[Rfam]
RNA sequence: UUUAAUAAGAAGCUUAGUCUACAUUAGAGCGGGGGAACCACAAAUUUGGUAUAUCAUAUGCCUUGGGGUGAAUCUUUCCUGAGUGAAAGUAGGGUACUCUCAAACCCGAAUCCGACAGUUAACCUCGUCUGCUUAUUGAGAGAAAGA
Number, nucleotide and partner (000 for none) at each position: 001u000002u000003u000004a000005a000006u000007a000008a000009g000010a000011a133012g132013c131014u000015u000016a000017g000018u028019c027020u026021a000022c000023a000024u000025u000026a020027g019028a018029g128030c127031g126032g125033g124034g123035g000036a000037a000038c000039c065040a064041c000042a000043a000044a000045u000046u000047u000048g000049g000050u000051a000052u000053a000054u000055c000056a000057u000058a000059u000060g000061c000062c000063u000064u040065g039066g113067g112068g111069u000070g000071a000072a000073u000074c089075u088076u087077u086078c000079c000080u000081g000082a000083g000084u000085g000086a077087a076088a075089g074090u000091a000092g107093g106094g105095u104096a000097c000098u000099c000100u000101c000102a000103a000104a095105c094106c093107c092108g000109a000110a000111u068112c067113c066114g000115a000116c000117a000118g000119u000120u000121a000122a000123c034124c033125u032126c031127g030128u029129c000130u000131g013132c012133u011134u000135a000136u000137u000138g000139a000140g000141a000142g000143a000144a000145a000146g000147a000
RNA: c-di-AMP riboswitch aptamer (ydaO/yuaA leader)
Organism: Priestia veravalensis